[Rfam]
RNA sequence: AGCUGGACCGGGUCGACGGCCCUGGUGGUGAGGAGGUAGUCGCGCAUCACGAUGCCGUGGCGGCCCUC
Dot-bracket structure: ...(.(.(...((..((.......)).)).....((((.(((.(...).)))))))..).).).....
A member of the RNA family "ASdes TB sRNA" from Streptomyces sp. PT12, 68 nucleotides long. The base pairs follow the family's consensus structure, which is taken from published work. The organism belongs to Streptomyces, within Bacteria. It is annotated as a small RNA. On this family, see Arnvig and Young, Mol Microbiol 2009: "Identification of small RNAs in Mycobacterium tuberculosis". A search with the family's covariance model found it, with a score of 64 bits.